[Rfam]
RNA sequence: GGUCUGUGAUGAAUAGUAAAAGGUCUGAUUGCCUGAAGAAUUACACUUCCAUUACCCUUUCAACUCCCAGCAAUUUCUCACCCAUCGUACCUCAGCAAUGCUGUGACUGGGGGAGUGCUUGCUGACAUAUGGUGAUGUGUUCAGUUCAUGUUCCCUAGAGCAUGACAGGCACAAUUCUGAUCUGCAUCCAACAGAACCAGUCAAAGGAAUAAGGGGUUCUGGAGGUGCAUAUCUGGCUACAUGAUCUCAAACUUUCUUGCUGAGACC
Numbered sequence: 001g002g003u004c005u006g007u008g009a010u011g012a013a014u015a016g017u018a019a020a021a022g023g024u025c026u027g028a029u030u031g032c033c034u035g036a037a038g039a040a041u042u043a044c045a046c047u048u049c050c051a052u053u054a055c056c057c058u059u060u061c062a063a064c065u066c067c068c069a070g071c072a073a074u075u076u077c078u079c080a081c082c083c084a085u086c087g088u089a090c091c092u093c094a095g096c097a098a099u100g101c102u103g104u105g106a107c108u109g110g111g112g113g114a115g116u117g118c119u120u121g122c123u124g125a126c127a128u129a130u131g132g133u134g135a136u137g138u139g140u141u142c143a144g145u146u147c148a149u150g151u152u153c154c155c156u157a158g159a160g161c162a163u164g165a166c167a168g169g170c171a172c173a174a175u176u177c178u179g180a181u182c183u184g185c186a187u188c189c190a191a192c193a194g195a196a197c198c199a200g201u202c203a204a205a206g207g208a209a210u211a212a213g214g215g216g217u218u219c220u221g222g223a224g225g226u227g228c229a230u231a232u233c234u235g236g237c238u239a240c241a242u243g244a245u246c247u248c249a250a251a252c253u254u255u256c257u258u259g260c261u262g263a264g265a266c267c
Stems, first nucleotide, its partner, number of pairs: 001267004037247003041243001046225006065208003068124006081110002085106005090100001132189001134188006149173003153169002
The family of this 267-nucleotide RNA from Chelonoidis abingdonii is "Small Cajal body specific RNA 6".
The family's consensus secondary structure is taken from published work.
The literature on the family includes a 2002 paper in EMBO J by Darzacq et al., "Cajal body-specific small nuclear RNAs: a novel class of 2'-O-methylation and pseudouridylation guide RNAs".
Gene Ontology terms of the family: RNA processing and nucleolus.
U88 is small Cajal body specific RNA (scaRNA). scaRNAs are a novel class of small nuclear RNAs which localise to the Cajal bodies. U88 is found associated with both fibrillarin and Gar1p and co-localises with coilin in Cajal bodies.
Lineage of the source: Eukaryota > Eumetazoa > Archelosauria > Testudinidae > Chelonoidis nigra species complex.